c-di-AMP riboswitch aptamer (ydaO/yuaA leader): a 169-nucleotide RNA sequence from Microbispora sp. ATCC PTA-5024.
Taxonomically the source falls in Microbispora (Bacteria, Actinomycetes, Streptosporangiales, Streptosporangiaceae).
[Rfam]
RNA sequence: GAGGACCGGACGCCGAGUCUUCGAAGCACCGAGCGUGUGGAGGGGAGCCGGGGACCCAACUGCGAGUCGGGCCGAGUGCGGCCCGUGUCGACAAGGGGUGAAUCCGAAAGGUAGGGCUGCUCCGGCCCGAACCCGUCAGCUAACCCGGUAGGCGCCCAGGAGUGCCGUA
Numbered sequence: 001g002a003g004g005a006c007c008g009g010a011c012g013c014c015g016a017g018u019c020u021u022c023g024a025a026g027c028a029c030c031g032a033g034c035g036u037g038u039g040g041a042g043g044g045g046a047g048c049c050g051g052g053g054a055c056c057c058a059a060c061u062g063c064g065a066g067u068c069g070g071g072c073c074g075a076g077u078g079c080g081g082c083c084c085g086u087g088u089c090g091a092c093a094a095g096g097g098g099u100g101a102a103u104c105c106g107a108a109a110g111g112u113a114g115g116g117c118u119g120c121u122c123c124g125g126c127c128c129g130a131a132c133c134c135g136u137c138a139g140c141u142a143a144c145c146c147g148g149u150a151g152g153c154g155c156c157c158a159g160g161a162g163u164g165c166c167g168u169a
Base pairs, nucleotide, nucleotide: 011154012153013152014151018046019045020044021043022042047149048148049147050146051145052144057095096134097133098132104111105110114128115127116126117125